The record is a 191-nucleotide sequence from Corynebacterium marinum, which matches "c-di-AMP riboswitch aptamer (ydaO/yuaA leader)" in Rfam. Lineage of the source: Bacteria > Actinomycetes > Mycobacteriales > Corynebacterium > Corynebacterium marinum. It scores 61 bits against the family's covariance model.
RNA sequence: ACCAGAUACCCACCAGAUCCAUGUGGACAGGGGCGGGGAAACCACCGCGGGCCCACCCAGGCCCGCACCGGUCGGCGGCUUCCAGCGGAAGCCUCCGCCCUCGGGGUGAAGCCUCACAGCAGUGAGGCCGGGCACAGUGAUCCUCAGCCCGAACCCGACAGCUCACCUCGCAGGCGACCAUGAGAGGAACA
Numbered sequence: 001a002c003c004a005g006a007u008a009c010c011c012a013c014c015a016g017a018u019c020c021a022u023g024u025g026g027a028c029a030g031g032g033g034c035g036g037g038g039a040a041a042c043c044a045c046c047g048c049g050g051g052c053c054c055a056c057c058c059a060g061g062c063c064c065g066c067a068c069c070g071g072u073c074g075g076c077g078g079c080u081u082c083c084a085g086c087g088g089a090a091g092c093c094u095c096c097g098c099c100c101u102c103g104g105g106g107u108g109a110a111g112c113c114u115c116a117c118a119g120c121a122g123u124g125a126g127g128c129c130g131g132g133c134a135c136a137g138u139g140a141u142c143c144u145c146a147g148c149c150c151g152a153a154c155c156c157g158a159c160a161g162c163u164c165a166c167c168u169c170g171c172a173g174g175c176g177a178c179c180a181u182g183a184g185a186g187g188a189a190c191a
Stems, first nucleotide, its partner, number of pairs: 011176001013174002018032003033171006043103001104156003112127004130150004